[Rfam]
Guanidine-II riboswitch aptamer (mini-ykkC): a 48-nucleotide sequence from Corymbia citriodora. The family's consensus secondary structure is taken from published work. Rfam links the family to the GO term regulation of gene expression. The family has 72 seed sequences and 1,589 matches in Rfam 15.1. A search with the family's covariance model found it, with a score of 39 bits. NCBI's taxonomy places the organism under Eukaryota, Euphyllophyta, Magnoliopsida, Mesangiospermae, Corymbia citriodora.
RNA sequence: CGGCGAGGACGGCCUCGCCGGACUCCGGCGCCGGCGAGGACGGCCUCG
Numbered sequence: 001c002g003g004c005g006a007g008g009a010c011g012g013c014c015u016c017g018c019c020g021g022a023c024u025c026c027g028g029c030g031c032c033g034g035c036g037a038g039g040a041c042g043g044c045c046u047c048g
Stems, first nucleotide, its partner, number of pairs: 001020008035048005